The record is an 84-nucleotide RNA sequence from Anolis carolinensis, which matches "mir-5408 microRNA precursor family" in Rfam. The base pairs follow the family's consensus structure, which was predicted with RNAalifold.
Nucleotides: 084
Base pairs, nucleotide, nucleotide: 001084002083003082004081005080006079007078008077010075011074012073013072016069017068018067019066020065021064022063023062024061026059027058030055031054032053034051035050036049037048
Number, partner (000 for none) and nucleotide at each position: 001084g002083g003082g004081c005080c006079u007078u008077u009000c010075g011074g012073a013072c014000c015000a016069c017068a018067a019066c020065u021064c022063c023062c024061a025000c026059a027058a028000u029000c030055c031054u032053u033000u034051g035050u036049c037048a038000u039000a040000g041000g042000c043000u044000c045000g046000a047000c048037u049036g050035g051034c052000u053032g054031g055030g056000g057000a058027u059026u060000c061024u062023g063022g064021g065020a066019g067018u068017u069016g070000g071000a072013g073012u074011c075010c076000c077008a078007g079006g080005g081004g082003c083002c084001u

Lineage of the source: Eukaryota > Bilateria > Deuterostomia > Vertebrata > Anolis.